[Rfam]
RNA sequence: UCAAGAUCUGGAGAUGACACGCCUCCAUAACCGCCCUAACAAGGCUAAUGAUGUCUACGUGACC
Numbered sequence: 001u002c003a004a005g006a007u008c009u010g011g012a013g014a015u016g017a018c019a020c021g022c023c024u025c026c027a028u029a030a031c032c033g034c035c036c037u038a039a040c041a042a043g044g045c046u047a048a049u050g051a052u053g054u055c056u057a058c059g060u061g062a063c064c
Base pairs, nucleotide, nucleotide: 010026011025012024013023016055017054018053019052033045034044035043
The family of this 64-nucleotide sequence from Yersinia pestis is "Fluoride riboswitch aptamer (crcB RNA motif)". The base pairs follow the family's consensus structure, which is taken from published work. Taxonomically the source falls in Yersinia pestis (Bacteria, Enterobacterales, Yersiniaceae, Yersinia).